[Rfam]
RNA sequence: CUUACCUAAAACAAUGAAAGCCCUGCCUCUCUCUCAUCCUUACGGCUCCUUGACCGUGCCAGUGUGAAUCAGGAUUAUAAAACUCAA
Numbered sequence: 001c002u003u004a005c006c007u008a009a010a011a012c013a014a015u016g017a018a019a020g021c022c023c024u025g026c027c028u029c030u031c032u033c034u035c036a037u038c039c040u041u042a043c044g045g046c047u048c049c050u051u052g053a054c055c056g057u058g059c060c061a062g063u064g065u066g067a068a069u070c071a072g073g074a075u076u077a078u079a080a081a082a083c084u085c086a087a
Base pairs, nucleotide, nucleotide: 034067035066036065039062040061041058042057043056044055045054047052
Dot-bracket structure: .................................(((..(((((((.(....).)))))..))..)))....................
Rfam assigns this 87-nucleotide sequence from Neobacillus rhizophilus to the family "BsrC". A search with the family's covariance model found it, with a score of 96 bits. About the family: The 301 nucleotide sequence from Kouji Nakamura has been trimmed to a highly conserved ~85 nucleotide long core to form this family. By type it is a small RNA. Taxonomically the source falls in Neobacillus (Bacteria, Bacillota, Bacilli, Caryophanales).